[Rfam]
RNA sequence: UAUUGAACGUAGGGGAGCUUGGAGAGCCAGGCUGAGAGGGUGGAGCAGAACCCCACCGACCCUUACAACCUGAUCUGGAUAAUGCCAGCGGAGGGAGUCACAUGUGUAAAUCA
Numbered sequence: 001u002a003u004u005g006a007a008c009g010u011a012g013g014g015g016a017g018c019u020u021g022g023a024g025a026g027c028c029a030g031g032c033u034g035a036g037a038g039g040g041u042g043g044a045g046c047a048g049a050a051c052c053c054c055a056c057c058g059a060c061c062c063u064u065a066c067a068a069c070c071u072g073a074u075c076u077g078g079a080u081a082a083u084g085c086c087a088g089c090g091g092a093g094g095g096a097g098u099c100a101c102a103u104g105u106g107u108a109a110a111u112c113a
Stems, first nucleotide, its partner, number of pairs: 009098002011063004017032005039057005069094003075088004
TPP riboswitch aptamer (THI element): a 113-nucleotide RNA sequence from SAR202 cluster bacterium AC-409-J13_OGT_754m. The organism belongs to SAR202 cluster, within Bacteria. On this family, see Rodionov et al., J Biol Chem 2002: "Comparative genomics of thiamin biosynthesis in procaryotes. New genes and regulatory mechanisms". A search with the family's covariance model found it, with a score of 65 bits.